[Rfam]
A member of the RNA family "Bacterial small subunit ribosomal RNA" from Chloroherpeton thalassium, 544 nucleotides of a longer RNA.
Its Rfam clan is "SSU clan".
The source organism's lineage runs through Bacteria, Pseudomonadati, Chlorobiota, Chlorobiia and Chloroherpeton thalassium.
It is one of the family's seed sequences.
RNA sequence: ACAACGGAGAGUUUGAUCCUGGCUCAGGACGAACGCUGGCGGCGUGCCUAACACAUGCAAGCCAAAGGAAAGCUUCGGUUAGUACUUGGCGUACGGGUGAGUAAGGUAUAGGUAAUCUGCCUCUUGGUCUGACAUACCUUCGAGAAAUCGAAGAUAAUUUCAGAUAAUGCAGCGGCACCGCAUGGUGAUGUUGUUAAAGACUUGUUGCCAAGAGAUGAGCCUAUAUUUCAUCAGGUAGUUGGUGGGGUAAUAGCCUACCAAGCCUACGACGGAUAACUGGUCUGAGAGGAUGAUCAGUCACACUGGAACUGAGACACGGUCCAGACUCCUACGGGAGGCAGCAGUGAGGAAUAUUGCGCAAUGGGUGAAAGCCUGACGCAGCAACGCCGCGUGGAUGAUGAAGUUCUUAGGAAUGUAAAGUCCUUUUGUAAGGGAAGAAAAUCUCGCUUGGUGAGACUGACGGUACCUUAUGAAUAAGCCACGGCUAACUCUGUGCCAGCAGCCGCGGUGAUACAGGGGUGGCAAGCGUUGUCCGGAUUUACUG
Numbered sequence: 001a002c003a004a005c006g007g008a009g010a011g012u013u014u015g016a017u018c019c020u021g022g023c024u025c026a027g028g029a030c031g032a033a034c035g036c037u038g039g040c041g042g043c044g045u046g047c048c049u050a051a052c053a054c055a056u057g058c059a060a061g062c063c064a065a066a067g068g069a070a071a072g073c074u075u076c077g078g079u080u081a082g083u084a085c086u087u088g089g090c091g092u093a094c095g096g097g098u099g100a101g102u103a104a105g106g107u108a109u110a111g112g113u114a115a116u117c118u119g120c121c122u123c124u125u126g127g128u129c130u131g132a133c134a135u136a137c138c139u140u141c142g143a144g145a146a147a148u149c150g151a152a153g154a155u156a157a158u159u160u161c162a163g164a165u166a167a168u169g170c171a172g173c174g175g176c177a178c179c180g181c182a183u184g185g186u187g188a189u190g191u192u193g194u195u196a197a198a199g200a201c202u203u204g205u206u207g208c209c210a211a212g213a214g215a216u217g218a219g220c221c222u223a224u225a226u227u228u229c230a231u232c233a234g235g236u237a238g239u240u241g242g243u244g245g246g247g248u249a250a251u252a253g254c255c256u257a258c259c260a261a262g263c264c265u266a267c268g269a270c271g272g273a274u275a276a277c278u279g280g281u282c283u284g285a286g287a288g289g290a291u292g293a294u295c296a297g298u299c300a301c302a303c304u305g306g307a308a309c310u311g312a313g314a315c316a317c318g319g320u321c322c323a324g325a326c327u328c329c330u331a332c333g334g335g336a337g338g339c340a341g342c343a344g345u346g347a348g349g350a351a352u353a354u355u356g357c358g359c360a361a362u363g364g365g366u367g368a369a370a371g372c373c374u375g376a377c378g379c380a381g382c383a384a385c386g387c388c389g390c391g392u393g394g395a396u397g398a399u400g401a402a403g404u405u406c407u408u409a410g411g412a413a414u415g416u417a418a419a420g421u422c423c424u425u426u427u428g429u430a431a432g433g434g435a436a437g438a439a440a441a442u443c444u445c446g447c448u449u450g451g452u453g454a455g456a457c458u459g460a461c462g463g464u465a466c467c468u469u470a471u472g473a474a475u476a477a478g479c480c481a482c483g484g485c486u487a488a489c490u491c492u493g494u495g496c497c498a499g500c501a502g503c504c505g506c507g508g509u510g511a512u513a514c515a516g517g518g519g520u521g522g523c524a525a526g527c528g529u530u531g532u533c534c535g536g537a538u539u540u541a542c543u544g
Stems, first nucleotide, its partner, number of pairs: 009025005027534004032530006039390006045383002047348001052346003056343003061090003066087003069083001071080003097301003106226008116218002121214007129163004138153006169194006177186003199206002227273003234264003239261008276298004280291004303324005326337004354380001356379003362375005393423004403414004428471006437461001443455003478523005489518005499506002